[Rfam]
Rfam assigns this 87-nucleotide sequence from Paenibacillus prosopidis to the family "c-di-GMP-I riboswitch aptamer".
A search with the family's covariance model found it, with a score of 85 bits.

RNA sequence: AUUUGAUAAAGGCAAAAUCAUUGAAAGAUGAUGACGCAAAGCUACAGGGGCUAACGUUUUUUUAAACUAUGCCAGCCAGUUGCCAAU
Number, nucleotide and partner (000 for none) at each position: 001a000002u000003u000004u000005g000006a000007u000008a000009a000010a000011g000012g037013c036014a000015a000016a000017a032018u031019c030020a029021u028022u027023g000024a000025a000026a000027g022028a021029u020030g019031a018032u017033g000034a000035c000036g013037c012038a000039a000040a081041g080042c079043u078044a000045c000046a000047g077048g076049g073050g072051c071052u000053a000054a000055c000056g067057u066058u065059u064060u000061u000062u000063u000064a059065a058066a057067c056068u000069a000070u000071g051072c050073c049074a000075g000076c048077c047078a043079g042080u041081u040082g000083c000084c000085a000086a000087u000
Taxonomically the source falls in Paenibacillus (Bacteria, Bacillota, Caryophanales, Paenibacillaceae).